Rfam assigns this 94-nucleotide sequence from Durio zibethinus to the family "MIR535 microRNA precursor family". Taxonomically the source falls in Durio (Eukaryota, Euphyllophyta, Magnoliopsida, malvids). The base pairs follow the family's consensus structure, which was predicted with RNAalifold. Gene Ontology terms of the family: RISC complex and miRNA-mediated post-transcriptional gene silencing.
RNA sequence: AUGAUCAUUUGACAAUGAGAGAGAGCACGCUCGUUGCCAUUCAUGCAAGUACAUGGAUGUUUACAAGCGUGUUCUCUAUUGUUGUCAUAUGAUC
Numbered sequence: 001a002u003g004a005u006c007a008u009u010u011g012a013c014a015a016u017g018a019g020a021g022a023g024a025g026c027a028c029g030c031u032c033g034u035u036g037c038c039a040u041u042c043a044u045g046c047a048a049g050u051a052c053a054u055g056g057a058u059g060u061u062u063a064c065a066a067g068c069g070u071g072u073u074c075u076c077u078a079u080u081g082u083u084g085u086c087a088u089a090u091g092a093u094c
Base pairs, nucleotide, nucleotide: 010087011086012085013084014083016081017080020077021076023074025072026071027070028069029068030067031066033064034063